[Rfam]
RNA sequence: AAAUGUCUCACGGGGAGCCUUUCUCAGGGCUGAGAGGCGGCCGGGCCGCCGACCCGUCGAACCUGAUCCGGGUCAUGCCGGCGGAGGGAAUGAGCAUGCGAUUUCGC
Numbered sequence: 001a002a003a004u005g006u007c008u009c010a011c012g013g014g015g016a017g018c019c020u021u022u023c024u025c026a027g028g029g030c031u032g033a034g035a036g037g038c039g040g041c042c043g044g045g046c047c048g049c050c051g052a053c054c055c056g057u058c059g060a061a062c063c064u065g066a067u068c069c070g071g072g073u074c075a076u077g078c079c080g081g082c083g084g085a086g087g088g089a090a091u092g093a094g095c096a097u098g099c100g101a102u103u104u105c106g107c
Base pairs, nucleotide, nucleotide: 007094008093009092010091011056012055013054014053017030018029019028020027021026037049038048039047040046041045062087063086064085068081069080070079071078